RNA sequence: AUACUUACCUGGCGUCGGGGCUACCGUGAUCAGUAAGGCGGUUCCCUCAGGGCGAGGCCUUUCCAUUGCACUUAGGUUGGGUUGACCCCUGCGAAUAUCCCAAAUGUGGAUAUCUCGGGCGCAUAAUUUUUGGUAGUCGGGACUGCGUUCGCGCUGUCCCGG
Numbered sequence: 001a002u003a004c005u006u007a008c009c010u011g012g013c014g015u016c017g018g019g020g021c022u023a024c025c026g027u028g029a030u031c032a033g034u035a036a037g038g039c040g041g042u043u044c045c046c047u048c049a050g051g052g053c054g055a056g057g058c059c060u061u062u063c064c065a066u067u068g069c070a071c072u073u074a075g076g077u078u079g080g081g082u083u084g085a086c087c088c089c090u091g092c093g094a095a096u097a098u099c100c101c102a103a104a105u106g107u108g109g110a111u112a113u114c115u116c117g118g119g120c121g122c123a124u125a126a127u128u129u130u131u132g133g134u135a136g137u138c139g140g141g142a143c144u145g146c147g148u149u150c151g152c153g154c155u156g157u158c159c160c161g162g
Base pairs, nucleotide, nucleotide: 012122013121014120015119017047018046019045020044023042024041025040026039027038049090050089051088052087054086056083057082058081060079063076064075092117093116094115095113096112097111099109100108137162138161139160140159141158142157145154146153147152
U1 spliceosomal RNA: a 162-nucleotide RNA from Rhodnius prolixus.
The base pairs follow the family's consensus structure, which is taken from published work.
U1 is a small nuclear RNA (snRNA) component of the spliceosome (involved in pre-mRNA splicing). Its 5' end forms complementary base pairs with the 5' splice junction, thus defining the 5' donor site of an intron. There are significant differences in sequence and secondary structure between metazoan and yeast U1 snRNAs, the latter being much longer (568 nucleotides as compared to 164 nucleotides in human).
NCBI's taxonomy places the organism under Eukaryota, Mandibulata, Pancrustacea, Cimicomorpha, Rhodnius.